Rfam assigns this 88-nucleotide sequence from Streptomyces boluensis to the family "Glycine riboswitch aptamer". Gene Ontology term of the family: glycine biosynthetic process. NCBI's taxonomy places the organism under Bacteria, Actinomycetota, Kitasatosporales, Streptomycetaceae, Streptomyces. It scores 38 bits against the family's covariance model.

[Rfam]
RNA sequence: CAACUCUGGAAAGCAGGCGUCGAGGCGUCUCGCCCACGGUGCAAGCGGCGUUCCGCCGUGAAGCUCUCAGGCCAAUGACAGAGGGGGA
Numbered sequence: 001c002a003a004c005u006c007u008g009g010a011a012a013g014c015a016g017g018c019g020u021c022g023a024g025g026c027g028u029c030u031c032g033c034c035c036a037c038g039g040u041g042c043a044a045g046c047g048g049c050g051u052u053c054c055g056c057c058g059u060g061a062a063g064c065u066c067u068c069a070g071g072c073c074a075a076u077g078a079c080a081g082a083g084g085g086g087g088a
Base pairs, nucleotide, nucleotide: 001086004083005082006081007080008079015030016029017028018027032072033071034070036067039066041064045059046058047057048056049055